[Rfam]
RNA sequence: AAGUUUCUUCGGGGCAGGGUGUAAUUCCCGACCGGCGGUGACAGUCCGCGAACCCGUUUGGCGGGUGGAAACGGUGAAAUUCCGUUGCCGACAGUAUAGUCUGGAUGAGAGAAGAAAGGC
Numbered sequence: 001a002a003g004u005u006u007c008u009u010c011g012g013g014g015c016a017g018g019g020u021g022u023a024a025u026u027c028c029c030g031a032c033c034g035g036c037g038g039u040g041a042c043a044g045u046c047c048g049c050g051a052a053c054c055c056g057u058u059u060g061g062c063g064g065g066u067g068g069a070a071a072c073g074g075u076g077a078a079a080u081u082c083c084g085u086u087g088c089c090g091a092c093a094g095u096a097u098a099g100u101c102u103g104g105a106u107g108a109g110a111g112a113a114g115a116a117a118g119g120c
Base pairs, nucleotide, nucleotide: 004117005116006115007114008113009112010111017029018028019027031100032099033090034089035049036048037047038046044088045087052066053065054064070086071085072084073083074082092103093102094101
Shown here is a 120-nucleotide RNA sequence from Guopingia tenuis, a member of the family "FMN riboswitch aptamer (RFN element)".